[Rfam]
RNA sequence: CAAGUAUGCAAACUGCUAUUUUCCGUUUCUUUUUUUUCUUUAGCGCCUGAAUCCCAGGGGCUUUGCGCGUAAGAAAAGAAACAAAAAGUAGCGCUUAAGCCUCCUCUGUGGAGGCUUUUUUAUU
Dot-bracket structure: ..............((((.(((..(((((((((.((.(..(..............)(.(....).)..).)).)))))))))..))).))))....((((((((.....)))))))).......

Notes: Shown here is a 124-nucleotide RNA from Prodigiosinella confusarubida, a member of the family "Phenylalanine leader peptide". Its family is annotated with cellular amino acid metabolic process in the Gene Ontology. The family's RNA type in Rfam is cis-regulatory leader. The family's consensus secondary structure was predicted with CMfinder. A reference for the family is Zurawski et al. (1978), "Nucleotide sequence of the leader region of the phenylalanine operon of Escherichia coli", Proc Natl Acad Sci U S A. NCBI's taxonomy places the organism under Bacteria, Gammaproteobacteria, Enterobacterales, Pectobacteriaceae, Prodigiosinella.